[Rfam]
RNA sequence: CAGCUCCUUCGAUGUUUUGUGUGUUGGCAGAAAAUCCAAACGGUUUGUUUGGUACGACUAAACCCUGAGCUCUCCCCUCCCCAACGGCUCAGGGUUUUUUUUGCCUGUUA
Numbered sequence: 001c002a003g004c005u006c007c008u009u010c011g012a013u014g015u016u017u018u019g020u021g022u023g024u025u026g027g028c029a030g031a032a033a034a035u036c037c038a039a040a041c042g043g044u045u046u047g048u049u050u051g052g053u054a055c056g057a058c059u060a061a062a063c064c065c066u067g068a069g070c071u072c073u074c075c076c077c078u079c080c081c082c083a084a085c086g087g088c089u090c091a092g093g094g095u096u097u098u099u100u101u102u103g104c105c106u107g108u109u110a
Stems, first nucleotide, its partner, number of pairs: 034053003038050004060098003063094009073084001
The record is a 110-nucleotide RNA from Atopomonas hussainii, which matches "Pseudomon-1/ErsA RNA" in Rfam. Functions to regulate the AlgC enzyme. Based on this information, the new name ErsA for the RNA was adopted. Negatively regulates major porin oprD expression responsible for uptake of carbapenem antibiotics, by base pairing with oprD 5'UTR (leading to increased bacterial resistance to meropenem).Positively regulates amrZ mRNA and contributes to biofilm formation and motility. It is annotated as a small RNA. Gene Ontology terms of the family: positive regulation of translation, ncRNA-mediated, mRNA binding and sRNA-mediated gene silencing.